[Rfam]
RNA sequence: UGAAAAGACAUGCUUAGUCUGGCUUUGCCAGAGCGGAGGACCCGGUUUAUUGGGGCUAAUCUUCAGUAUCUGAGAGGAGGACCUUUCACCUCUAGCCCGUCAGCUAACUUCGUUUGCAUUGAGAGGAGUCAUA
Numbered sequence: 001u002g003a004a005a006a007g008a009c010a011u012g013c014u015u016a017g018u019c020u021g022g023c024u025u026u027g028c029c030a031g032a033g034c035g036g037a038g039g040a041c042c043c044g045g046u047u048u049a050u051u052g053g054g055g056c057u058a059a060u061c062u063u064c065a066g067u068a069u070c071u072g073a074g075a076g077g078a079g080g081a082c083c084u085u086u087c088a089c090c091u092c093u094a095g096c097c098c099g100u101c102a103g104c105u106a107a108c109u110u111c112g113u114u115u116g117c118a119u120u121g122a123g124a125g126g127a128g129u130c131a132u133a
Stems, first nucleotide, its partner, number of pairs: 011118003018032003033113006043052002053098003061074003077092004